[Rfam]
The family of this 76-nucleotide RNA sequence from Otolemur garnettii is "mir-483 microRNA precursor family".
A search with the family's covariance model found it, with a score of 72 bits.
Its family is annotated with RISC complex and miRNA-mediated post-transcriptional gene silencing in the Gene Ontology.

RNA sequence: GAGGGGGAAGGCGGGAGGGAAGAAGAGAGCUGUUCCAUCUCGGUUCCUCACUCCUCUCCUCCCGUCUUCUCCUCUC
Numbered sequence: 001g002a003g004g005g006g007g008a009a010g011g012c013g014g015g016a017g018g019g020a021a022g023a024a025g026a027g028a029g030c031u032g033u034u035c036c037a038u039c040u041c042g043g044u045u046c047c048u049c050a051c052u053c054c055u056c057u058c059c060u061c062c063c064g065u066c067u068u069c070u071c072c073u074c075u076c
Base pairs, nucleotide, nucleotide: 004072005071006070007069008068009067010066011065012064013063014062015061016060017059018058022056024055025054027052029051031050032049